RNA: Plastid-ndhJ 3UTR RNA
RNA sequence: UCAUGAACUUUGUACUGCGCAUAUUACUUAGAUGGGUUAUUCAUAAACGAG
Numbered sequence: 001u002c003a004u005g006a007a008c009u010u011u012g013u014a015c016u017g018c019g020c021a022u023a024u025u026a027c028u029u030a031g032a033u034g035g036g037u038u039a040u041u042c043a044u045a046a047a048c049g050a051g
Stems, first nucleotide, its partner, number of pairs: 019037002022034004